[Rfam]
RNA sequence: ACUGCUUUACUUUUGAACUCCCUCAUUGAGGUUGGCCCGAUAAGCCCUUAUUUACGUUUCAUGCUUAUCGGGCUUUUUAUU
Numbered sequence: 001a002c003u004g005c006u007u008u009a010c011u012u013u014u015g016a017a018c019u020c021c022c023u024c025a026u027u028g029a030g031g032u033u034g035g036c037c038c039g040a041u042a043a044g045c046c047c048u049u050a051u052u053u054a055c056g057u058u059u060c061a062u063g064c065u066u067a068u069c070g071g072g073c074u075u076u077u078u079a080u081u
Stems, first nucleotide, its partner, number of pairs: 034074012
Annotation:
Rfam assigns this 81-nucleotide RNA from Budvicia aquatica to the family "RybB RNA". Pairs were carried over by alignment from the consensus structure, which was predicted with PFOLD. A search with the family's covariance model found it, with a score of 51 bits. About the family: This ncRNA was identified in a large scale screen of E. coli. The function of this short RNA is unknown. The exact 5' and 3' ends of this RNA are uncertain.